The record is a 106-nucleotide sequence from Canis lupus, which matches "mir-8834 microRNA precursor family" in Rfam.
RNA sequence: AGGAGGAACAACCCCAGUGGCAGCGGCCAGCUCCCCAGCCCUGGAGUCAGCUCCCGCAGUAACUACAGGGCUCUCUGUCUGCAGGGCCUGGAGGCUCUGGGGCGAG
Number, nucleotide and partner (000 for none) at each position: 001a000002g098003g097004a096005g095006g000007a000008a000009c090010a089011a000012c086013c085014c084015c000016a000017g000018u000019g079020g078021c077022a076023g075024c000025g074026g073027c000028c000029a072030g071031c070032u069033c068034c000035c000036c000037a064038g000039c000040c000041c059042u058043g057044g000045a000046g000047u000048c000049a000050g000051c000052u000053c000054c000055c000056g000057c043058a042059g041060u000061a000062a000063c000064u037065a000066c000067a000068g033069g032070g031071c030072u029073c026074u025075c023076u022077g021078u020079c019080u000081g000082c000083a000084g014085g013086g012087c000088c000089u010090g009091g000092a000093g000094g000095c005096u004097c003098u002099g000100g000101g000102g000103c000104g000105a000106g000
About this RNA:
Lineage of the source: Eukaryota > Teleostomi > Carnivora > Caniformia > Canis lupus. The base pairs follow the family's consensus structure, which was predicted with RNAalifold.